Small nucleolar RNA SNORA81: a 186-nucleotide RNA from Sinocyclocheilus rhinocerous. Pairs were carried over by alignment from the consensus structure, which was predicted with WAR. Rfam classes the family as an H/ACA-box small nucleolar RNA. It scores 91 bits against the family's covariance model.

RNA sequence: CCCUUAUUUUAAAAGCACCGUGCUAAAAUCACCAGCUCAAGGCCUUCGGGCCUUGCUCUGGUGUUUACGCUAGUACUGGUUAAUCUUAAAGAAGGAAGAGCAAAAGCACACGGUCGGAAAUGAGUCUAGGGCGGACCUCUUUCUUAAUGUCCGGUGUCCAAGAUCUCGAGAUUUUGUGCCAUUAGA
Number, nucleotide and partner (000 for none) at each position: 001c000002c000003c000004u000005u000006a000007u000008u000009u000010u000011a000012a000013a000014a000015g000016c000017a000018c079019c078020g000021u075022g074023c073024u072025a071026a000027a000028a000029u067030c000031a065032c000033c000034a059035g058036c000037u000038c055039a054040a053041g052042g051043c050044c049045u000046u000047c000048g000049g044050g043051c042052c041053u040054u039055g038056c000057u000058c035059u034060g000061g000062u000063g000064u000065u031066u000067a029068c000069g000070c000071u025072a024073g023074u022075a021076c000077u000078g019079g018080u000081u000082a000083a000084u000085c000086u000087u000088a000089a000090a000091g000092a000093a000094g000095g000096a000097a000098g000099a000100g000101c000102a000103a000104a000105a000106g179107c178108a177109c176110a175111c000112g173113g172114u000115c000116g000117g000118a000119a000120a000121u000122g000123a000124g000125u000126c000127u000128a157129g000130g155131g000132c153133g152134g151135a150136c000137c000138u000139c000140u000141u000142u000143c000144u000145u000146a000147a000148u000149g000150u135151c134152c133153g132154g000155u130156g000157u128158c000159c000160a000161a000162g000163a000164u000165c000166u000167c000168g000169a000170g000171a000172u113173u112174u000175u110176g109177u108178g107179c106180c000181a000182u000183u000184a000185g000186a000
Notes
NCBI's taxonomy places the organism under Eukaryota, Eumetazoa, Euteleostomi, Cyprinidae, Sinocyclocheilus.